About this RNA
Rfam assigns this 64-nucleotide RNA from Anopheles gambiae to the family "mir-308 microRNA precursor family".
RNA sequence: UUCGCAGUAUAUCCCUGUGAGUUUGCUACUUUUCAAUGGUCAAAUCACAGGAGUAUACUGUGAG
Numbered sequence: 001u002u003c004g005c006a007g008u009a010u011a012u013c014c015c016u017g018u019g020a021g022u023u024u025g026c027u028a029c030u031u032u033u034c035a036a037u038g039g040u041c042a043a044a045u046c047a048c049a050g051g052a053g054u055a056u057a058c059u060g061u062g063a064g
Stems, first nucleotide, its partner, number of pairs: 001064011014051006022044004
A reference for the family is Skalsky et al. (2010), "Identification of microRNAs expressed in two mosquito vectors, Aedes albopictus and Culex quinquefasciatus", BMC Genomics. Rfam links the family to the GO terms RISC complex and miRNA-mediated post-transcriptional gene silencing. The source organism's lineage runs through Eukaryota, Altocrustacea, Allotriocarida, Eumetabola and gambiae species complex.